[Rfam]
RNA: Betaproteobacteria toxic small RNA
Organism: Caballeronia concitans
RNA sequence: UGUCUCCUCCAUGUCCAUCGAUACGGAUUGAGCCCGCUUGACUAAGCGGGCUUUUUUUC
Numbered sequence: 001u002g003u004c005u006c007c008u009c010c011a012u013g014u015c016c017a018u019c020g021a022u023a024c025g026g027a028u029u030g031a032g033c034c035c036g037c038u039u040g041a042c043u044a045a046g047c048g049g050g051c052u053u054u055u056u057u058u059c
Stems, first nucleotide, its partner, number of pairs: 008027003012023004031052008